[Rfam]
RNA sequence: AAGCUACACUCUGUGUCAGAAGUUGAAAACAACAAUGAUCUGGCUCAAUUUAAGCUUGCUACAGAAAACUACAGUCUGACCUAUUCCAGCAUUCUCUUAUCACUGGGAUUUGCAGUUAUGUGGACUGUCACAAA
Numbered sequence: 001a002a003g004c005u006a007c008a009c010u011c012u013g014u015g016u017c018a019g020a021a022g023u024u025g026a027a028a029a030c031a032a033c034a035a036u037g038a039u040c041u042g043g044c045u046c047a048a049u050u051u052a053a054g055c056u057u058g059c060u061a062c063a064g065a066a067a068a069c070u071a072c073a074g075u076c077u078g079a080c081c082u083a084u085u086c087c088a089g090c091a092u093u094c095u096c097u098u099a100u101c102a103c104u105g106g107g108a109u110u111u112g113c114a115g116u117u118a119u120g121u122g123g124a125c126u127g128u129c130a131c132a133a134a
Stems, first nucleotide, its partner, number of pairs: 009054002012047002015044001017042004072127007082120003087115001089113002095108004
RNA: Small nucleolar RNA SNORA28
Organism: Atractosteus spatula